[Rfam]
Nucleotides: 123
Base pairs, nucleotide, nucleotide: 018057019056020055021054022053023035024034025033026032027031036048037047038046039045070100071099072098073097074096080095081094082093083092084091111123112122113121115120
Number, partner (000 for none) and nucleotide at each position: 001000u002000g003000c004000g005000a006000u007000g008000a009000g010000u011000c012000g013000a014000g015000a016000a017000g018057a019056u020055c021054a022053c023035g024034c025033c026032a027031u028000u029000u030000u031027a032026u033025g034024g035023u036048u037047c038046g039045c040000u041000a042000u043000a044000a045039g046038c047037g048036a049000u050000u051000a052000a053022g054021u055020g056019a057018u058000a059000u060000u061000u062000u063000c064000a065000a066000g067000c068000g069000g070100a071099g072098u073097a074096c075000g076000u077000u078000u079000u080095c081094c082093u083092a084091c085000c086000g087000u088000a089000u090000u091084g092083u093082a094081g095080g096074g097073u098072a099071u100070u101000u102000g103000a104000u105000u106000c107000a108000u109000u110000g111123g112122a113121u114000a115120u116000g117000u118000g119000a120115a121113a122112u123111c
A member of the RNA family "Enterococcus sRNA 68 (Lacto-3 RNA)" from Apilactobacillus ozensis, 123 nucleotides long.
The source organism's lineage runs through Bacteria, Bacilli, Lactobacillaceae, Apilactobacillus and Apilactobacillus ozensis.
On this family, see Innocenti et al., RNA 2015: "Whole-genome mapping of 5' RNA ends in bacteria by tagged sequencing: a comprehensive view in Enterococcus faecalis".
By type it is a small RNA.
The base pairs follow the family's consensus structure, which is taken from published work.